[Rfam]
RNA sequence: AUUCCGAAGACAAUAUGGCACACCAUAUUGUCUGGCAGCAAGCGAAGGUGUCAUUGACACCCGUGGUGUAGUUUCUAUAACUACACCACGUUUUUUUUCA
Number, nucleotide and partner (000 for none) at each position: 001a000002u000003u000004c000005c000006g000007a000008a000009g032010a031011c030012a029013a028014u027015a026016u025017g024018g023019c000020a000021c000022a000023c018024c017025a016026u015027a014028u013029u012030g011031u010032c009033u000034g000035g043036c042037a000038g000039c000040a000041a000042g036043c035044g000045a000046a000047g061048g060049u059050g058051u057052c056053a000054u000055u000056g052057a051058c050059a049060c048061c047062c090063g089064u088065g087066g086067u085068g084069u083070a082071g081072u080073u079074u000075c000076u000077a000078u000079a073080a072081c071082u070083a069084c068085a067086c066087c065088a064089c063090g062091u000092u000093u000094u000095u000096u000097u000098u000099c000100a000